[Rfam]
RNA sequence: CCCUUCCUGUUAAAGCACCUUGCUAAAAUUGCAGUUGUCAGACUGAUUGUCUGGCUAUUGCAGUGAUGCCAGUAGGGUACACCCAGGAAGAAGAAAAAUAUGCACAGUGUCAUAAAAAGACUUGGGUGGACCUCUUUCUUAAUGUCCAGUGUCCUUGAUCUUGUGAUUUCUGUGCUACAUUU
Number, nucleotide and partner (000 for none) at each position: 001c000002c000003c000004u000005u000006c000007c000008u000009g000010u000011u000012a000013a000014a000015g000016c000017a000018c077019c076020u000021u074022g073023c072024u071025a000026a000027a000028a067029u066030u065031g064032c000033a000034g058035u057036u000037g055038u054039c053040a052041g051042a050043c049044u000045g000046a000047u000048u000049g043050u042051c041052u040053g039054g038055c037056u000057a035058u034059u000060g000061c000062a000063g000064u031065g030066a029067u028068g000069c000070c000071a024072g023073u022074a021075g000076g019077g018078u000079a000080c000081a000082c000083c000084c000085a000086g000087g000088a000089a000090g000091a000092a000093g000094a000095a000096a000097a000098a000099u000100a000101u000102g175103c174104a173105c172106a171107g170108u000109g168110u000111c000112a000113u000114a000115a000116a000117a000118a000119g000120a000121c000122u000123u000124g000125g150126g000127u148128g147129g146130a145131c000132c000133u000134c000135u000136u000137u000138c000139u000140u000141a000142a000143u000144g000145u130146c129147c128148a127149g000150u125151g000152u000153c000154c000155u000156u000157g000158a000159u000160c000161u000162u000163g000164u000165g000166a000167u000168u109169u000170c107171u106172g105173u104174g103175c102176u000177a000178c000179a000180u000181u000182u000